Small nucleolar RNA U109: a 148-nucleotide RNA from Ovis aries.
RNA sequence: UUGUACAUGAAAAUGUCUCUUCCUCAUUCCUUUAGGAGCAGAAGUAUCCGUCGCAUGCUACAUUGAAAGUUCUCAGGGCUAGCAGUCUAAUAGGAGAAGUUGAUGUGUAUGUCUAGUGUCUAGUGUCUAGUGUAUGUCUCCUACAUAA
Numbered sequence: 001u002u003g004u005a006c007a008u009g010a011a012a013a014u015g016u017c018u019c020u021u022c023c024u025c026a027u028u029c030c031u032u033u034a035g036g037a038g039c040a041g042a043a044g045u046a047u048c049c050g051u052c053g054c055a056u057g058c059u060a061c062a063u064u065g066a067a068a069g070u071u072c073u074c075a076g077g078g079c080u081a082g083c084a085g086u087c088u089a090a091u092a093g094g095a096g097a098a099g100u101u102g103a104u105g106u107g108u109a110u111g112u113c114u115a116g117u118g119u120c121u122a123g124u125g126u127c128u129a130g131u132g133u134a135u136g137u138c139u140c141c142u143a144c145a146u147a148a
Stems, first nucleotide, its partner, number of pairs: 003058003008053001016042003020038004068139002078131002082127001083125002087123003

Rfam classes the family as an H/ACA-box small nucleolar RNA. The family's consensus secondary structure was predicted with WAR. The match comes from Rfam's covariance-model search (47 bits). Gene Ontology terms of the family: nucleolus and RNA processing. A reference for the family is Gu et al. (2005), "A novel experimental approach for systematic identification of box H/ACA snoRNAs from eukaryotes", Nucleic Acids Res.